[Rfam]
RNA sequence: CCAACGGCUCUUUUCAGAGCCACCUACACAAGUCUGAGAAAGGGCU
Dot-bracket structure: .....((((((....)))))).........................
The family of this 46-nucleotide RNA sequence from Nannospalax galili is "Histone 3' UTR stem-loop". It is annotated as a cis-regulatory element. The mRNAs of metazoan histone genes lack a poly-A tail. 3' end processing occurs at a site between a highly conserved stem-loop (modelled by this family) and a purine rich region around 20 nts downstream (the histone downstream element, or HDE). The stem-loop is bound by a 31 kDa stem-loop binding protein (SLBP - also termed the histone hairpin binding protein, or HBP). Taxonomically the source falls in Nannospalax (Eukaryota, Metazoa, Vertebrata, Theria).